[Rfam]
About this RNA: Shown here is an 88-nucleotide RNA sequence, a member of the family "OmrA-B family". A reference for the family is Argaman et al. (2001), "Novel small RNA-encoding genes in the intergenic regions of Escherichia coli", Curr Biol. Rfam 15.1 lists 153 matches to the family in 128 species. It is annotated as a small RNA.
RNA sequence: CACGUAGGUAUAGGUAGGUAGGUAGGUAGGUAUAUUAUUAUAUCCACAACAUACUAUAUACCUACCUACAUAAAUGUAGGUAUUUUUU
Numbered sequence: 001c002a003c004g005u006a007g008g009u010a011u012a013g014g015u016a017g018g019u020a021g022g023u024a025g026g027u028a029g030g031u032a033u034a035u036u037a038u039u040a041u042a043u044c045c046a047c048a049a050c051a052u053a054c055u056a057u058a059u060a061c062c063u064a065c066c067u068a069c070a071u072a073a074a075u076g077u078a079g080g081u082a083u084u085u086u087u088u
Stems, first nucleotide, its partner, number of pairs: 016063005022052001029044006064081007